Record summary
Rfam assigns this 549-nucleotide part of an RNA from uncultured bacterium AD254-A9 to the family "Bacterial large subunit ribosomal RNA". Rfam's curators put it in the seed alignment.

[Rfam]
RNA sequence: AGUAAAGUGCACAGUGGUGGAUGCCUAGGCACGAGUCGGCGAUGAAAGACGUGGCAAGCUGCGAUAAGCCUCGGGGAGCUGCAAGCAAGCGUAGAUCCGGGGAUUUCUGAAUGGGGAAACCCGGCGGAGGUCAUACUCCGUCACCCGAAAGGGAGCUAACCCAGGGAACUGAAACAUCUAAGUACCUGGAGGAAAAGAAAUCAAAAGAGAUUCCCUAAGUAGCGGCGAGCGAACGGGGAAUAGCCCAAACCGGCGGGGGUCAAACCUUGCCGGGGUUGUGGGGCCCUACGGAACCGAAUCAAAAGCGUAGUAGAACGCGCCUGGAACGGCGGACCAGAGAGGGUGAGAGUCCCGUAAACGAAACGCGAGUAGAGGAGCGGUAGGGUACCCGAGUAGGCCGGGGCACGAGAAAUCCCGGUUGAAUCUGGGGGGACCAUCCUCCAAGGCUAAAUACGAACUCGUGACCGAUAGUGCAGAGUACCGUGAGGGAAAGGUGAAAAGAACGCCUGACGGCGAGUGAAAUAGAACCUGAAACCGUGUGCAUACAAG
Number, nucleotide and partner (000 for none) at each position: 001a000002g000003u000004a000005a000006a000007g544008u543009g542010c541011a540012c539013a538014g000015u537016g536017g535018u000019g000020g000021a000022u000023g529024c494025c493026u000027a000028g466029g465030c463031a462032c461033g460034a459035g458036u457037c455038g454039g156040c155041g000042a000043u000044g000045a000046a000047a108048g107049a106050c063051g062052u061053g000054g000055c000056a000057a000058g000059c000060u000061g052062c051063g050064a000065u000066a000067a000068g000069c102070c101071u100072c099073g098074g097075g096076g000077a000078g090079c089080u088081g000082c000083a000084a000085g000086c000087a000088a080089g079090c078091g000092u000093a000094g000095a000096u075097c074098c073099g072100g071101g070102g069103a000104u000105u000106u049107c048108u047109g000110a000111a000112u000113g122114g121115g120116g000117a000118a000119a000120c115121c114122c113123g142124g141125c140126g139127g138128a137129g136130g000131u000132c000133a000134u000135a000136c129137u128138c127139c126140g125141u124142c123143a000144c153145c152146c151147g000148a000149a000150a000151g146152g145153g144154a000155g040156c039157u000158a000159a000160c191161c189162c188163a187164g186165g185166g000167a000168a000169c000170u000171g178172a177173a000174a000175c000176a000177u172178c171179u000180a000181a000182g000183u000184a000185c165186c164187u163188g162189g161190a000191g160192g000193a000194a000195a000196a000197g000198a000199a000200a000201u208202c207203a000204a000205a000206a000207g202208a201209g000210a000211u451212u239213c238214c237215c236216u235217a000218a000219g000220u000221a000222g230223c229224g000225g000226c000227g000228a000229g223230c222231g000232a000233a000234c000235g216236g215237g214238g213239a212240a000241u000242a448243g447244c446245c445246c000247a000248a000249a000250c273251c272252g271253g270254c269255g268256g267257g000258g000259g000260u000261c000262a000263a000264a000265c000266c000267u256268u255269g254270c253271c252272g251273g250274g000275g000276u000277u000278g000279u000280g390281g389282g388283g000284c000285c384286c383287u382288a381289c380290g000291g000292a000293a000294c000295c000296g000297a000298a000299u373300c372301a000302a370303a000304a000305g366306c365307g364308u363309a000310g359311u358312a000313g000314a000315a000316c332317g000318c331319g330320c329321c328322u000323g000324g000325a000326a000327c000328g321329g320330c319331g318332g316333a000334c000335c339336a000337g000338a000339g335340a000341g353342g352343g351344u000345g000346a000347g000348a000349g000350u000351c343352c342353c341354g000355u000356a000357a000358a311359c310360g000361a000362a000363a308364c307365g306366c305367g000368a000369g000370u302371a000372g300373a299374g000375g000376a000377g000378c000379g000380g289381u288382a287383g286384g285385g000386u000387a000388c282389c281390c280391g000392a000393g000394u000395a000396g420397g419398c418399c417400g416401g415402g414403g413404c000405a000406c000407g000408a000409g000410a000411a000412a000413u403414c402415c401416c400417g399418g398419u397420u396421g000422a000423a000424u000425c000426u000427g442428g441429g440430g439431g438432g000433a000434c000435c000436a000437u000438c431439c430440u429441c428442c427443a000444a000445g245446g244447c243448u242449a000450a000451a211452u000453a000454c038455g037456a000457a036458c035459u034460c033461g032462u031463g030464a000465c029466c028467g000468a000469u000470a000471g000472u000473g000474c000475a000476g000477a000478g000479u000480a000481c488482c487483g000484u000485g000486a000487g482488g481489g000490a000491a000492a000493g025494g024495u000496g000497a000498a000499a000500a000501g000502a000503a000504c515505g514506c513507c512508u000509g000510a000511c000512g507513g506514c505515g504516a000517g000518u000519g000520a000521a000522a000523u000524a000525g000526a000527a000528c000529c023530u000531g000532a000533a000534a000535c017536c016537g015538u013539g012540u011541g010542c009543a008544u007545a000546c000547a000548a000549g000